mir-9242 microRNA precursor family: a 64-nucleotide RNA from Myotis brandtii. The family has 2 seed sequences and 940 matches in Rfam 15.1. The family's consensus secondary structure was predicted with RNAalifold. The source organism's lineage runs through Eukaryota, Opisthokonta, Eutheria, Vespertilionidae and Myotis. It scores 65 bits against the family's covariance model.

[Rfam]
RNA sequence: GGUCUCCCUCUGUGGGGUGAUUGAUCUGGGGGCCCUGCGAUUGAUCGCCCCACAGAGGGAGGCC
Numbered sequence: 001g002g003u004c005u006c007c008c009u010c011u012g013u014g015g016g017g018u019g020a021u022u023g024a025u026c027u028g029g030g031g032g033c034c035c036u037g038c039g040a041u042u043g044a045u046c047g048c049c050c051c052a053c054a055g056a057g058g059g060a061g062g063c064c
Stems, first nucleotide, its partner, number of pairs: 001064026029036002